[Rfam]
RNA sequence: GCCCCAGCUAGGCCCGCGAACCGAAGAGUGGGAGACCUUCACCCGCCUGCUGGGGCGAUCUCUUUGAAGG
Numbered sequence: 001g002c003c004c005c006a007g008c009u010a011g012g013c014c015c016g017c018g019a020a021c022c023g024a025a026g027a028g029u030g031g032g033a034g035a036c037c038u039u040c041a042c043c044c045g046c047c048u049g050c051u052g053g054g055g056c057g058a059u060c061u062c063u064u065u066g067a068a069g070g
Stems, first nucleotide, its partner, number of pairs: 001056008011022002028046005036070006
The family of this 70-nucleotide sequence from Aquabacterium commune is "int-alpA RNA". A search with the family's covariance model found it, with a score of 53 bits. Taxonomically the source falls in Aquabacterium (Bacteria, Pseudomonadati, Pseudomonadota, Burkholderiales).